[Rfam]
RNA: Singlet oxygen resistance RNA X
Organism: Planktotalea frisia
RNA sequence: CAGCCUCAUGAGGACGACGAUGGUGCUGCGGUACCUAGUCCUUGUACCUCCCUGUUGGACUUCGGCCGAGCUUAAUGCUCGGCCUUUUUU
Numbered sequence: 001c002a003g004c005c006u007c008a009u010g011a012g013g014a015c016g017a018c019g020a021u022g023g024u025g026c027u028g029c030g031g032u033a034c035c036u037a038g039u040c041c042u043u044g045u046a047c048c049u050c051c052c053u054g055u056u057g058g059a060c061u062u063c064g065g066c067c068g069a070g071c072u073u074a075a076u077g078c079u080c081g082g083c084c085u086u087u088u089u090u
Stems, first nucleotide, its partner, number of pairs: 008045007064084008